[Rfam]
RNA sequence: GGCCUUGCAUGGCGAUGCCACCGCCCCUAUAUCAGAGUCGCCGUCGUGCUCACGCACUUGGCUAUGGCGAUAAACGGCUCGUGGAAUAAUCGUUGUGGACCCGGGGGCAGUGCCCGGCGUCUCCACCAUAAUACUCUCCUACCCGGCAACGGCGGAGACGAUGGGGACGAAACAGGAUCGACACGCGUGGUAAAGACCAGUCUUUUGCCCGGCAUUGUACCGCCGUCAUCGGGCUAAACUCAGAAGUGCCAACGAUAACACGAAGGUGCUCGCUGUCGCUGCAUAAGCGAUAAGCGCGGUUCGGGAGGGCACCGGGCAACAGAAGCCCUCCCACU
Numbered sequence: 001g002g003c004c005u006u007g008c009a010u011g012g013c014g015a016u017g018c019c020a021c022c023g024c025c026c027c028u029a030u031a032u033c034a035g036a037g038u039c040g041c042c043g044u045c046g047u048g049c050u051c052a053c054g055c056a057c058u059u060g061g062c063u064a065u066g067g068c069g070a071u072a073a074a075c076g077g078c079u080c081g082u083g084g085a086a087u088a089a090u091c092g093u094u095g096u097g098g099a100c101c102c103g104g105g106g107g108c109a110g111u112g113c114c115c116g117g118c119g120u121c122u123c124c125a126c127c128a129u130a131a132u133a134c135u136c137u138c139c140u141a142c143c144c145g146g147c148a149a150c151g152g153c154g155g156a157g158a159c160g161a162u163g164g165g166g167a168c169g170a171a172a173c174a175g176g177a178u179c180g181a182c183a184c185g186c187g188u189g190g191u192a193a194a195g196a197c198c199a200g201u202c203u204u205u206u207g208c209c210c211g212g213c214a215u216u217g218u219a220c221c222g223c224c225g226u227c228a229u230c231g232g233g234c235u236a237a238a239c240u241c242a243g244a245a246g247u248g249c250c251a252a253c254g255a256u257a258a259c260a261c262g263a264a265g266g267u268g269c270u271c272g273c274u275g276u277c278g279c280u281g282c283a284u285a286a287g288c289g290a291u292a293a294g295c296g297c298g299g300u301u302c303g304g305g306a307g308g309g310c311a312c313c314g315g316g317c318a319a320c321a322g323a324a325g326c327c328c329u330c331c332c333a334c335u
Stems, first nucleotide, its partner, number of pairs: 040062004066209005076202004081197002091187003095184003101117005118169007210225004215236001217234001220232002297314004304331006